[Rfam]
Nucleotides: 127
Stems, first nucleotide, its partner, number of pairs: 002057006014045004019040003023037001026035001070120001072118003077113004085105004090101001092099002
Number, partner (000 for none) and nucleotide at each position: 001000a002057g003056g004055u005054c006053a007052u008000u009000u010000a011000a012000a013000a014045g015044a016043g017042a018000a019040c020039u021038u022000g023037u024000g025000g026035g027000a028000c029000c030000a031000a032000a033000a034000c035026c036000u037023g038021g039020a040019g041000c042017u043016c044015u045014u046000a047000a048000u049000u050000c051000u052007g053006u054005g055004g056003c057002c058000u059000a060000a061000g062000a063000u064000u065000g066000a067000a068000g069000u070120u071000c072118u073117u074116u075000a076000u077113a078112g079111g080110a081000c082000g083000u084000a085105a086104u087103a088102g089000a090101u091000a092099c093098u094000c095000a096000a097000u098093a099092g100000a101090g102088c103087u104086a105085u106000g107000u108000u109000u110080u111079c112078c113077u114000g115000c116074g117073g118072a119000a120070a121000u122000a123000u124000a125000a126000g127000a

The record is a 127-nucleotide RNA sequence from Myotis davidii, which matches "Small nucleolar RNA SNORA25" in Rfam. Gene Ontology terms of the family: nucleolus and RNA processing. Rfam's curators write: ACA25 is a member of the H/ACA class of snoRNA that guide the sites of modification of uridines to pseudouridines. Pairs were carried over by alignment from the consensus structure, which was predicted with RNAfold. The match comes from Rfam's covariance-model search (102 bits).